The family of this 82-nucleotide RNA from Papaver nudicaule is "Small nucleolar RNA SNORD25". Pairs were carried over by alignment from the consensus structure, which was predicted with PFOLD. Gene Ontology terms of the family: RNA processing and nucleolus. The source organism's lineage runs through Eukaryota, Magnoliopsida, Mesangiospermae, Papaveraceae and Papaver. The match comes from Rfam's covariance-model search (48 bits).
[Rfam]
RNA sequence: AAUGCCGAUGAUGAUUAAACAUAGACCUGUAAUGAUAGCGGAGAUGACCGCAUAAUUAUAACAUCUAAGGGGCUGAGGCAUA
Numbered sequence: 001a002a003u004g005c006c007g008a009u010g011a012u013g014a015u016u017a018a019a020c021a022u023a024g025a026c027c028u029g030u031a032a033u034g035a036u037a038g039c040g041g042a043g044a045u046g047a048c049c050g051c052a053u054a055a056u057u058a059u060a061a062c063a064u065c066u067a068a069g070g071g072g073c074u075g076a077g078g079c080a081u082a
Stems, first nucleotide, its partner, number of pairs: 002081005